About this RNA: The family of this 277-nucleotide RNA from Rhinopithecus roxellana is "Mason-Pfizer monkey virus packaging signal". Pairs were carried over by alignment from the consensus structure, which was predicted with PFOLD. About the family: This family represents a group of sequences that are related to the Mason-Pfizer monkey virus (MPMV) packaging signal. The packaging signal is located in the 5' UTR and is required for specific RNA encapsidation. For this family Rfam cites "Secondary structure model of the Mason-Pfizer monkey virus 5' leader sequence: identification of a structural motif common to a variety of retroviruses" (Harrison et al., J Virol, 1995). NCBI's taxonomy places the organism under Eukaryota, Euteleostomi, Dipnotetrapodomorpha, Eutheria, Rhinopithecus.

[Rfam]
RNA sequence: UGGCGCCCGAACAGGGACCUGGACACGGGGGAAAAAGUGAGGAGGAAGAAGGCACUAAAGUCGGCCGAAAGUAAAAGUGGAAGAAAUUCCUCUGGAUGUCGCGGGAACCUGCCACGUUGGAACCAGAGGUAAGUAACAUGUCUGAUUAUGGGACAAGAAUUAAGUCAGCAUCAGAUUUAUGUAGGGCAGUUAAAAGAGGCCUUAAAAACACGAGGAGUAAAGGUUAAAAGUAAUGAUUUGUUUAACUUUUUUGAUUUCAUAAAGGAUACCUGCCCUU
Numbered sequence: 001u002g003g004c005g006c007c008c009g010a011a012c013a014g015g016g017a018c019c020u021g022g023a024c025a026c027g028g029g030g031g032a033a034a035a036a037g038u039g040a041g042g043a044g045g046a047a048g049a050a051g052g053c054a055c056u057a058a059a060g061u062c063g064g065c066c067g068a069a070a071g072u073a074a075a076a077g078u079g080g081a082a083g084a085a086a087u088u089c090c091u092c093u094g095g096a097u098g099u100c101g102c103g104g105g106a107a108c109c110u111g112c113c114a115c116g117u118u119g120g121a122a123c124c125a126g127a128g129g130u131a132a133g134u135a136a137c138a139u140g141u142c143u144g145a146u147u148a149u150g151g152g153a154c155a156a157g158a159a160u161u162a163a164g165u166c167a168g169c170a171u172c173a174g175a176u177u178u179a180u181g182u183a184g185g186g187c188a189g190u191u192a193a194a195a196g197a198g199g200c201c202u203u204a205a206a207a208a209c210a211c212g213a214g215g216a217g218u219a220a221a222g223g224u225u226a227a228a229a230g231u232a233a234u235g236a237u238u239u240g241u242u243u244a245a246c247u248u249u250u251u252u253g254a255u256u257u258c259a260u261a262a263a264g265g266a267u268a269c270c271u272g273c274c275c276u277u
Base pairs, nucleotide, nucleotide: 006031007030008029015024038046089129090128091127092126097122100116101115103113104112139153141152142151143150144149161204162203163202164200165199166198211253212252213251214250215249216248217247221239222238223237224236225235226234262277263276264275265274267272